Overview: A member of the RNA family "RT-2 RNA", 169 nucleotides long. The family's RNA type in Rfam is small RNA. Rfam's curators put it in the seed alignment.
RNA sequence: GGUAUAACCUAUUUUUAUAGCCGAUACCCUUUCUUUUGACACCCAUGCACGGACGCUUCUUGCAUGGUGGGCGAAUGUGCCAUAGCCCAUUUCAUGUGUAUGGGUAAAGCAGAUUAGAAGGCACCCUACAAUUUAUCUGUGCGAAAGGCGAAUACUUUUUUAAUUAUGA
Number, nucleotide and partner (000 for none) at each position: 001g022002g021003u020004a000005u000006a000007a000008c000009c000010u000011a000012u000013u000014u000015u000016u000017a000018u000019a000020g003021c002022c001023g000024a000025u000026a000027c000028c000029c000030u000031u000032u148033c147034u146035u145036u144037u143038g142039a000040c141041a105042c104043c103044c102045a101046u100047g099048c098049a097050c096051g000052g000053a000054c000055g063056c062057u000058u000059c000060u000061u000062g056063c055064a000065u000066g091067g090068u089069g088070g087071g086072c085073g000074a000075a000076u000077g000078u000079g000080c000081c000082a000083u000084a000085g072086c071087c070088c069089a068090u067091u066092u000093c000094a000095u000096g050097u049098g048099u047100a046101u045102g044103g043104g042105u041106a000107a000108a000109g140110c139111a138112g137113a136114u000115u135116a127117g126118a000119a000120g000121g000122c000123a000124c000125c000126c117127u116128a000129c000130a000131a000132u000133u000134u000135a115136u113137c112138u111139g110140u109141g040142c038143g037144a036145a035146a034147g033148g032149c000150g000151a000152a000153u000154a000155c000156u000157u000158u000159u000160u000161u000162a000163a000164u000165u000166a000167u000168g000169a000